[Rfam]
Nucleotides: 106
Stems, first nucleotide, its partner, number of pairs: 001106008013042001015041003021032003026076004043068004048064002050061004072098001077095001079094003
Number, partner (000 for none) and nucleotide at each position: 001106u002105u003104c004103u005102u006101a007100u008099c009000a010000a011000g012000a013042g014000u015041g016040g017039u018000g019000a020000a021032g022031g023030g024000a025000a026076c027075u028074g029073g030023c031022c032021c033000a034000u035000u036000g037000a038000a039017g040016c041015c042013c043068a044067g045066c046065a047000a048064c049063c050061u051060g052059c053058u054000a055000u056000u057000u058053a059052g060051c061050a062000a063049g064048g065046u066045g067044c068043u069000a070000a071000u072098u073029c074028c075027a076026g077095c078000c079094a080093a081092a082000g083000c084000a085000a086000u087000u088000c089000c090000a091000a092081u093080u094079u095077g096000g097000a098072a099008g100007a101006u102005a103004a104003g105002g106001g

Shown here is a 106-nucleotide sequence from Metabacillus sediminilitoris, a member of the family "SAM riboswitch aptamer (S box leader)".
Pairs were carried over by alignment from the consensus structure, which is taken from published work.
A search with the family's covariance model found it, with a score of 79 bits.